[Rfam]
RNA sequence: UCGACUGUACUCUACAGGAUCAUGUUCGUAGUUAAUAUGUUCUGAUCUCUCAGUACUUUAGAUGGGAAACCAGCUGGUUGAUGACACGUUGUACGCCAUCCGUACAGGGAGGCUGUGGUCACUGCACCAUGCAGGUGUAGUAGACCCUCGAUGAUCUUGCGGAGCUAGUACUCGCUAUCUGUGCCCUUGUGCCGGGUGGUUGACGUCUAGCUUUCUAGCAAGGAUGGUCGUACCGUCUGACAGCCU
Dot-bracket structure: .((..(..(((....((.(...).))...))).)...))......(.(((((.(......).))))).)...((((..............(((((((((((....(((......(.(...(((((...........)))))...).).......))).......((((.(..........................................).))))...)))))).))))).......))))..
Record summary:
Shown here is a 246-nucleotide RNA from Tieghemiomyces parasiticus, a member of the family "ACEA small nucleolar RNA U3". About the family: Small nucleolar RNAs (snoRNAs) are involved in the processing and modification of rRNA in the nucleolus. There are two main classes of snoRNAs: the box C/D class, and the box H/ACA class. U3 snoRNA is a member of the box C/D class. Indeed, the box C/D element is a subset of the six short sequence elements found in all U3 snoRNAs, namely boxes A, A', B, C, C', and D. The U3 snoRNA secondary structure is characterised by a small 5' domain (with boxes A and A'), and a larger 3' domain (with boxes B, C, C', and D), the two domains being linked by a single-stranded hinge. The literature on the family includes a 1997 paper in Nucleic Acids Res by Zwieb, "The uRNA database". Taxonomically the source falls in Tieghemiomyces (Eukaryota, Fungi, Kickxellomycota, Kickxellomycotina). The family's RNA type in Rfam is C/D-box small nucleolar RNA.